[Rfam]
RNA sequence: AAUGGCAUAUGAUGAAUAAUUCAUUUACGCUUAUUGAUAUACUGAUAUUCUGUGCUGACACAAAACUCCGCUUAUUAUCAGAUGCCAUU
Numbered sequence: 001a002a003u004g005g006c007a008u009a010u011g012a013u014g015a016a017u018a019a020u021u022c023a024u025u026u027a028c029g030c031u032u033a034u035u036g037a038u039a040u041a042c043u044g045a046u047a048u049u050c051u052g053u054g055c056u057g058a059c060a061c062a063a064a065a066c067u068c069c070g071c072u073u074a075u076u077a078u079c080a081g082a083u084g085c086c087a088u089u
Stems, first nucleotide, its partner, number of pairs: 003087005

Rfam assigns this 89-nucleotide RNA sequence from Cucurbita maxima to the family "Small nucleolar RNA R16".
A reference for the family is Galardi et al. (2002), "Purified box C/D snoRNPs are able to reproduce site-specific 2'-O-methylation of target RNA in vitro", Mol Cell Biol.
A search with the family's covariance model found it, with a score of 57 bits.
NCBI's taxonomy places the organism under Eukaryota, Streptophyta, Tracheophyta, Gunneridae, Cucurbita.
Gene Ontology terms of the family: RNA processing and nucleolus.